[Rfam]
RNA: Bacillaceae-1 RNA
RNA sequence: AAUCAAGGAACACAGGCUAAGAGCGCCACGUCCUGUGGCAACGCCUGCAUGACCCGCGUCCUGCGGG
Numbered sequence: 001a002a003u004c005a006a007g008g009a010a011c012a013c014a015g016g017c018u019a020a021g022a023g024c025g026c027c028a029c030g031u032c033c034u035g036u037g038g039c040a041a042c043g044c045c046u047g048c049a050u051g052a053c054c055c056g057c058g059u060c061c062u063g064c065g066g067g
Base pairs, nucleotide, nucleotide: 013047014046015045016044017043025039026038027037028036029035053067054066055065056064057063